[Rfam]
A member of the RNA family "Streptomyces RNA 2736" from Streptomyces daliensis, 59 nucleotides long. It is annotated as a small RNA. The pairing is the family consensus, mapped onto this sequence. A reference for the family is Vockenhuber et al. (2011), "Deep sequencing-based identification of small non-coding RNAs in Streptomyces coelicolor", RNA Biol. Rfam describes the family as follows. Identified by deep sequencing of transcriptome at the end of exponential growth phase. Appears smaller on northern blot than sequencing transcript. This indicates processing step.
RNA sequence: CGCCCGGCCAGGAUCCCGUGGGGGGAAUCCGUGACCGGGAAACGGAACGCCCCGUCGAC
Numbered sequence: 001c002g003c004c005c006g007g008c009c010a011g012g013a014u015c016c017c018g019u020g021g022g023g024g025g026a027a028u029c030c031g032u033g034a035c036c037g038g039g040a041a042a043c044g045g046a047a048c049g050c051c052c053c054g055u056c057g058a059c
Stems, first nucleotide, its partner, number of pairs: 003039005009031001011030004015025003043054003
Dot-bracket structure: ..(((((.(.(((((((.....))).)))))...)))))...(((......))).....
Source information
Taxonomically the source falls in Streptomyces (Bacteria, Bacillati, Actinomycetes, Streptomycetaceae).